[Rfam]
RNA sequence: UGGGGGUUGAGGGGCCAGAGUGGAAGUACUCAUGGCAUGGCCUUGUUAGAUUCCAACAAAUCUGUGAAUUCUGCU
Numbered sequence: 001u002g003g004g005g006g007u008u009g010a011g012g013g014g015c016c017a018g019a020g021u022g023g024a025a026g027u028a029c030u031c032a033u034g035g036c037a038u039g040g041c042c043u044u045g046u047u048a049g050a051u052u053c054c055a056a057c058a059a060a061u062c063u064g065u066g067a068a069u070u071c072u073g074c075u
Base pairs, nucleotide, nucleotide: 011043013042014041015040016039019075020074021073022072023071024070025069026038027037047064048063049062050061051060052059